[Rfam]
The family of this 619-nucleotide RNA sequence is "ROOL RNA".
RNA sequence: ACUUUGAAAAAUAAAUACUUAUAACUCAGUGCUAAACAUAAUUUCGCAGAUUAUGCUGAGAAGCACCGUAAGGUCGGAUGUAAUAAGUUUUUAAAGGAUACUUUAAAACGCAAUCCGUGUAGUAAAUCGAGAGAUUUAUUAUGUAGAGGAUGGAAAAUCUCAAACCAAGGUGUGGUACUGGUUUUAACGCAAGUAAAGGUAGUAAGCGAGUGGGCGGCGCAAUAGAUAGCAGAACUAAUACUUUUGCCGAAUCUAAGUUAGACUUUGCGGGUGGUGCUGAAAGUAAACCUUAGAAAUACCAUAAGCCGUUUUGUCGUGAAACGAAGAAAUUCGUGUAUAACACUUGUAUGCAACUCCGAGUAGCCAAAAUGACAAGGCUGUAAUUCAAGUAAAUGUAAUUUCAAAUAUUGAUUUUAAUAGAAGAUUAAAAUUUUUACUUUGUGAAUUGCUGGUGAAAGGUGCAGGUAAUCAUUCCUGUCAGGGUUUUAUGAAGUUUAACUUCUGGGGUAGGAAAGUUAUGGGGUAGCUCCCUAUGGCUCACGCCUAUUUCCUCUGUGACUGAAUAUACUUGAAGUUAAUACGCAGUAGGUUGAAGAACCAUAAGAUAUUUAUUUUUCAA
Numbered sequence: 001a002c003u004u005u006g007a008a009a010a011a012u013a014a015a016u017a018c019u020u021a022u023a024a025c026u027c028a029g030u031g032c033u034a035a036a037c038a039u040a041a042u043u044u045c046g047c048a049g050a051u052u053a054u055g056c057u058g059a060g061a062a063g064c065a066c067c068g069u070a071a072g073g074u075c076g077g078a079u080g081u082a083a084u085a086a087g088u089u090u091u092u093a094a095a096g097g098a099u100a101c102u103u104u105a106a107a108a109c110g111c112a113a114u115c116c117g118u119g120u121a122g123u124a125a126a127u128c129g130a131g132a133g134a135u136u137u138a139u140u141a142u143g144u145a146g147a148g149g150a151u152g153g154a155a156a157a158u159c160u161c162a163a164a165c166c167a168a169g170g171u172g173u174g175g176u177a178c179u180g181g182u183u184u185u186a187a188c189g190c191a192a193g194u195a196a197a198g199g200u201a202g203u204a205a206g207c208g209a210g211u212g213g214g215c216g217g218c219g220c221a222a223u224a225g226a227u228a229g230c231a232g233a234a235c236u237a238a239u240a241c242u243u244u245u246g247c248c249g250a251a252u253c254u255a256a257g258u259u260a261g262a263c264u265u266u267g268c269g270g271g272u273g274g275u276g277c278u279g280a281a282a283g284u285a286a287a288c289c290u291u292a293g294a295a296a297u298a299c300c301a302u303a304a305g306c307c308g309u310u311u312u313g314u315c316g317u318g319a320a321a322c323g324a325a326g327a328a329a330u331u332c333g334u335g336u337a338u339a340a341c342a343c344u345u346g347u348a349u350g351c352a353a354c355u356c357c358g359a360g361u362a363g364c365c366a367a368a369a370u371g372a373c374a375a376g377g378c379u380g381u382a383a384u385u386c387a388a389g390u391a392a393a394u395g396u397a398a399u400u401u402c403a404a405a406u407a408u409u410g411a412u413u414u415u416a417a418u419a420g421a422a423g424a425u426u427a428a429a430a431u432u433u434u435u436a437c438u439u440u441g442u443g444a445a446u447u448g449c450u451g452g453u454g455a456a457a458g459g460u461g462c463a464g465g466u467a468a469u470c471a472u473u474c475c476u477g478u479c480a481g482g483g484u485u486u487u488a489u490g491a492a493g494u495u496u497a498a499c500u501u502c503u504g505g506g507g508u509a510g511g512a513a514a515g516u517u518a519u520g521g522g523g524u525a526g527c528u529c530c531c532u533a534u535g536g537c538u539c540a541c542g543c544c545u546a547u548u549u550c551c552u553c554u555g556u557g558a559c560u561g562a563a564u565a566u567a568c569u570u571g572a573a574g575u576u577a578a579u580a581c582g583c584a585g586u587a588g589g590u591u592g593a594a595g596a597a598c599c600a601u602a603a604g605a606u607a608u609u610u611a612u613u614u615u616u617c618a619a
Stems, first nucleotide, its partner, number of pairs: 007616011019604002025060005037055007063173005076116003079112003084108001089107002093104004118143011146161004183580001185578001187576001192570002198566001199560001202354002206347007213310006232244003252294006262284004268279003272301004311375005321334005357458001363453004440542004464476002480554003483502001490501002504551004510545002515538001517535007588599004

Annotation: Rfam classes the family as a small RNA. It is one of the family's seed sequences. Rfam describes the family as follows. Firmicutes, Fusobacteria (1 example), Tenericutes (1 example).